This 233-nucleotide RNA sequence belongs to the Rfam family "IS605-orfB-I RNA". The family's consensus secondary structure is taken from published work.

[Rfam]
RNA sequence: UCUGUACAUAACAAUAUUAUAUCCAAGAGAAUAUAGUUGCUCCCUAUAUGGAAUAAAUUUUUAAGCAAUGUUAAGUGGUAUUGAUUUAGUGAUGCGACUGCGUUGCAGAGGUUGAAAUACUACAAAACAGGGAUAGCCGUGAGUCCCAAAGAAUAUUAAUUCUUUAAAAUUAAUCUUUUGAAGUUGAUAAAAAGUAUAUUUAUUACUUUUUAUACUUCAAAAGUUACGGCGCU
Numbered sequence: 001u002c003u004g005u006a007c008a009u010a011a012c013a014a015u016a017u018u019a020u021a022u023c024c025a026a027g028a029g030a031a032u033a034u035a036g037u038u039g040c041u042c043c044c045u046a047u048a049u050g051g052a053a054u055a056a057a058u059u060u061u062u063a064a065g066c067a068a069u070g071u072u073a074a075g076u077g078g079u080a081u082u083g084a085u086u087u088a089g090u091g092a093u094g095c096g097a098c099u100g101c102g103u104u105g106c107a108g109a110g111g112u113u114g115a116a117a118u119a120c121u122a123c124a125a126a127a128c129a130g131g132g133a134u135a136g137c138c139g140u141g142a143g144u145c146c147c148a149a150a151g152a153a154u155a156u157u158a159a160u161u162c163u164u165u166a167a168a169a170u171u172a173a174u175c176u177u178u179u180g181a182a183g184u185u186g187a188u189a190a191a192a193a194g195u196a197u198a199u200u201u202a203u204u205a206c207u208u209u210u211u212a213u214a215c216u217u218c219a220a221a222a223g224u225u226a227c228g229g230c231g232c233u
Stems, first nucleotide, its partner, number of pairs: 001052006008045001010041001012039004018035005023029001069129004076122007096113002099110001130147005136230006142170001149164005175223010
Rfam classes the family as a small RNA.
The sequence is in the family's curated seed alignment.